[Rfam]
RNA sequence: AUUACACGGUUGGUAUAGAGUCUGAAAAACUCAGAAAGUGUGUGUUGUCAUCAGCUUCUUCUCUUGUAUGUCAACGAGAUUGGAGUUAAAUAACAGCACUACAUUA
Numbered sequence: 001a002u003u004a005c006a007c008g009g010u011u012g013g014u015a016u017a018g019a020g021u022c023u024g025a026a027a028a029a030c031u032c033a034g035a036a037a038g039u040g041u042g043u044g045u046u047g048u049c050a051u052c053a054g055c056u057u058c059u060u061c062u063c064u065u066g067u068a069u070g071u072c073a074a075c076g077a078g079a080u081u082g083g084a085g086u087u088a089a090a091u092a093a094c095a096g097c098a099c100u101a102c103a104u105u106a
Stems, first nucleotide, its partner, number of pairs: 042099006053087006060079004
Dot-bracket structure: .........................................((((((.....((((((.((((............))))..))))))......)))))).......
Record summary: Rfam assigns this 106-nucleotide sequence from Vitis vinifera to the family "Small nucleolar RNA snoR97". The family's RNA type in Rfam is H/ACA-box small nucleolar RNA. Rfam 15.1 lists 862 matches to the family in 223 species.